[Rfam]
RNA sequence: CCCCCAAGGGGAAGCGAAGACCCUAUGGAGCUUUACUGCAGGCUGUCGCUGGGACAUGGUCGCUGAUGUGCAGGAUAGGUAGGAGUCGUUACAGAGGUAGGCGCGCUAGCGCCUCACCCAGACAACACUGAAAUACUACCCGUCAGUGACUGUGACCCUCACUCCGGGAGGAGGACACCGAUAGCCGGGCAGUUUGACUGGGGCGGUACGCGCUCGAAAAGAUAUCGAGCGCGCUCUAAGUCCACCUCACGCGGGUCGGGAACCCGUGGAAGAGUGCAAGAGCAAAAGGUGGAUUGACAGUGACAUUCCUAACGAGUGUCGCUGACGCGAAAGCGUGAUCUAGCGAACCAAUAUGCCUGCCCGAUGCGGGCUAUUGAUGACAGAAAAGCUACCCUAGGGAUAACAGAGUCGUCACCGGCAAGAGCACAUAUCGACCCGGUGGCUUGCUACCUCGAUGUCGGUUCCCUCCAUCCUGCCCGUGCAGAAGCGGGCAAGGGUGAGGUUGUUCGCCUAUUAAAGGAGGUCGUGAGCUGGGUUUAGACCGUCGUGAGACAGGUCGGCUGCUAUCUAUUGGGGGUGUUAC
Dot-bracket structure: (((((((..(((.((......((((.(((((((.((((...(((((((..(((.((((((((((((((.........(((((..(((............(((((....))))).......)))............))))))))))))))))))).)))...((((....)))).....)))))))....))))..((((.....))).)((((((...........))))))..((....((((((((.((((((.......))))))...))((......))....))))))....(((((((((.........))))))))).(.(....).).))..........(((((.(((((.......)))))))))).........)))))..))))))........(((.((((((((...((.......))...)))))))..))))..........(((((((((((..((..(((((......)))))....))..((((.....))))......)))))..)..)))).).....(((((((....))).))))....))..))).)))))))......